[Rfam]
RNA sequence: GUGGUCUGAGGGUAAGUUGCUUUUAGUACGAGAGGAACAGAGCAACGGCGCCACUGGUCGAUCGGUUGUCUGACAAGGCACUGCCGAGCAGCUACGCGCUAAGGAAUAAGAGCUGAAUGCAUCUAAGCUCGAAAUCUAACCUAAAAAGAGACCACUUUAAGGGUUCCGGUAAAAGACCGGAUCGAUAGGAAUGGGAUGUAAGCACCAAGGCAACGAGGUGUUCAGUCCGCAUUUACUAAUAUCCGUGCC
Number, nucleotide and partner (000 for none) at each position: 001g155002u154003g153004g152005u151006c150007u149008g000009a000010g142011g141012g140013u139014a000015a000016g046017u045018u044019g043020c042021u041022u040023u039024u000025a000026g000027u000028a000029c000030g000031a000032g000033a000034g000035g000036a000037a000038c000039a023040g022041a021042g020043c019044a018045a017046c016047g100048g099049c098050g097051c096052c000053a000054c000055u094056g093057g092058u000059c000060g000061a000062u087063c086064g085065g084066u083067u080068g079069u078070c077071u076072g000073a000074c000075a000076a071077g070078g069079c068080a067081c000082u000083g066084c065085c064086g063087a062088g000089c000090a000091g000092c057093u056094a055095c000096g051097c050098g049099c048100u047101a000102a000103g137104g136105a135106a000107u000108a000109a000110g130111a129112g128113c127114u126115g000116a000117a000118u000119g000120c000121a000122u000123c000124u000125a000126a114127g113128c112129u111130c110131g000132a000133a000134a000135u105136c104137u103138a000139a013140c012141c011142u010143a000144a000145a000146a000147a000148g000149a007150g006151a005152c004153c003154a002155c001156u000157u000158u000159a000160a000161g244162g243163g242164u241165u181166c180167c179168g178169g177170u000171a000172a000173a000174a000175g000176a000177c169178c168179g167180g166181a165182u000183c000184g000185a000186u238187a237188g236189g234190a233191a232192u231193g230194g228195g227196a226197u000198g000199u000200a000201a000202g221203c220204a219205c218206c217207a000208a000209g214210g000211c000212a000213a000214c209215g000216a000217g206218g205219u204220g203221u202222u000223c000224a000225g000226u196227c195228c194229g000230c193231a192232u191233u190234u189235a000236c188237u187238a186239a000240u000241a164242u163243c162244c161245g000246u000247g000248c000249c000
RNA: Archaeal large subunit ribosomal RNA, nucleotides 2671 to 2919